[Rfam]
RNA sequence: CUUGACCGAGCCCAGCCACAGCGGCUCCUCCCGGUCCGCGCCGUAGGCCGACUGGAGCGCCUGCGCCUC
Numbered sequence: 001c002u003u004g005a006c007c008g009a010g011c012c013c014a015g016c017c018a019c020a021g022c023g024g025c026u027c028c029u030c031c032c033g034g035u036c037c038g039c040g041c042c043g044u045a046g047g048c049c050g051a052c053u054g055g056a057g058c059g060c061c062u063g064c065g066c067c068u069c
Stems, first nucleotide, its partner, number of pairs: 014026004028065001030063001032059002037054002041050001043048001
Record summary
The record is a 69-nucleotide sequence from Actinomadura rubrisoli, which matches "ASpks TB sRNA" in Rfam. It is annotated as an antisense RNA. A reference for the family is Arnvig and Young (2009), "Identification of small RNAs in Mycobacterium tuberculosis", Mol Microbiol. Taxonomically the source falls in Actinomadura (Bacteria, Bacillati, Actinomycetes, Thermomonosporaceae).